[Rfam]
RNA sequence: UGGGAGAUUUGAUACACAAACAAAGUUCAUCCUCGCUCUGUUUGCCACAAAAUCUCCCUAAAAGGAAAAGUUGCCUUUUGAUGACCGGGACGAAAUGAGAGAAAUCGUAACGGACAGAUACGGGGCAGACACGU
Numbered sequence: 001u002g003g004g005a006g007a008u009u010u011g012a013u014a015c016a017c018a019a020a021c022a023a024a025g026u027u028c029a030u031c032c033u034c035g036c037u038c039u040g041u042u043u044g045c046c047a048c049a050a051a052a053u054c055u056c057c058c059u060a061a062a063a064g065g066a067a068a069a070g071u072u073g074c075c076u077u078u079u080g081a082u083g084a085c086c087g088g089g090a091c092g093a094a095a096u097g098a099g100a101g102a103a104a105u106c107g108u109a110a111c112g113g114a115c116a117g118a119u120a121c122g123g124g125g126c127a128g129a130c131a132c133g134u
Stems, first nucleotide, its partner, number of pairs: 002058006017044003024037003071128007085113003090108004
The record is a 134-nucleotide RNA from Eleutherodactylus coqui, which matches "Small Cajal body specific RNA 8" in Rfam. It scores 106 bits against the family's covariance model. scaRNAs are a specific class of small nuclear RNAs which localise to the Cajal bodies and guide the modification of RNA polymerase II transcribed spliceosomal RNAs U1, U2, U4, U5 and U12. U92 belong to the H/ACA box class of guide RNAs as it has the predicted hairpin-hinge-hairpin-tail structure, conserved H/ACA-box motifs and is found associated with GAR1. The family has 22 seed sequences and 955 matches in Rfam 15.1. The family's consensus secondary structure is taken from published work.